[Rfam]
RNA: mir-8799 microRNA precursor family
Organism: Canis lupus
RNA sequence: GGGGGGUGCGCUGGAUCUUGGACUGUGCCCCCAGCACCCUGUGCUCCCGGGCCUGUGCUGUUGGAAUCGUAGUCCCGGCCACACAGCUCCCU
Numbered sequence: 001g002g003g004g005g006g007u008g009c010g011c012u013g014g015a016u017c018u019u020g021g022a023c024u025g026u027g028c029c030c031c032c033a034g035c036a037c038c039c040u041g042u043g044c045u046c047c048c049g050g051g052c053c054u055g056u057g058c059u060g061u062u063g064g065a066a067u068c069g070u071a072g073u074c075c076c077g078g079c080c081a082c083a084c085a086g087c088u089c090c091c092u
Stems, first nucleotide, its partner, number of pairs: 001092006010084001012081003017078002020075003024071004029064001031063001032060006041053001043052003